[Rfam]
Nucleotides: 130
Stems, first nucleotide, its partner, number of pairs: 021041008049070006078094006096110006
Number, partner (000 for none) and nucleotide at each position: 001000u002000u003000c004000g005000a006000u007000a008000g009000a010000a011000c012000u013000g014000g015000u016000c017000u018000c019000a020000g021041g022040c023039c024038g025037c026036u027035u028034c029000g030000c031000a032000a033000c034028g035027a036026g037025g038024c039023g040022g041021c042000a043000c044000u045000u046000u047000c048000a049070g050069c051068u052067c053066g054065c055000c056000a057000c058000g059000c060000c061000g062000g063000c064000a065054g066053c067052g068051a069050g070049c071000g072000c073000a074000a075000a076000c077000c078094g079093g080092c081091a082090g083089a084000a085000c086000g087000a088000c089083u090082c091081u092080g093079c094078c095000c096110g097109g098108c099107c100106u101105c102000g103000g104000a105101g106100a107099g108098g109097c110096c111000g112000a113000c114000g115000g116000g117000a118000c119000a120000u121000u122000a123000c124000a125000g126000u127000c128000a129000a130000c
A member of the RNA family "rmf RNA" from Pseudomonas putida, 130 nucleotides long. The family's RNA type in Rfam is cis-regulatory element.